The family of this 74-nucleotide sequence from Channa argus is "Small nucleolar RNA SNORD2".
The literature on the family includes a 2004 paper in Gene by Zhou et al., "Identification of a novel box C/D snoRNA from mouse nucleolar cDNA library".
The base pairs follow the family's consensus structure, which was predicted with WAR.
By type it is a C/D-box small nucleolar RNA.
RNA sequence: GAGUGACAUGAUGCUUAACCAUCUUUCGGGACUUACCCAUUAAUGGGGAUAACCUUUUUGAUCACUGAUCACUC
Numbered sequence: 001g002a003g004u005g006a007c008a009u010g011a012u013g014c015u016u017a018a019c020c021a022u023c024u025u026u027c028g029g030g031a032c033u034u035a036c037c038c039a040u041u042a043a044u045g046g047g048g049a050u051a052a053c054c055u056u057u058u059u060g061a062u063c064a065c066u067g068a069u070c071a072c073u074c
Base pairs, nucleotide, nucleotide: 001074002073003072004071005070006069